[Rfam]
RNA sequence: AAUUUUGGUGGUAGGAACAAAGAGAAGUAGAUUUAUUCUAUACUCGAUAAGUACCAAUACUCAAUGGGG
Numbered sequence: 001a002a003u004u005u006u007g008g009u010g011g012u013a014g015g016a017a018c019a020a021a022g023a024g025a026a027g028u029a030g031a032u033u034u035a036u037u038c039u040a041u042a043c044u045c046g047a048u049a050a051g052u053a054c055c056a057a058u059a060c061u062c063a064a065u066g067g068g069g
Base pairs, nucleotide, nucleotide: 003022004021006019007018009016043068044067045066051060052059053058
This 69-nucleotide sequence from Capsicum baccatum belongs to the Rfam family "Plastid-clpP 5UTR RNA". The family's consensus secondary structure was predicted with LocARNA. Taxonomically the source falls in Capsicum (Eukaryota, Streptophyta, Streptophytina, Spermatophyta). Plastid clpP is a non-coding RNA (ncRNA) recognised in plastids. It was found in the prime untranslated region (5UTR) of a protease complex subunit (clpP) in plastids, suggesting a posible cis-regulatory function. By type it is a cis-regulatory element.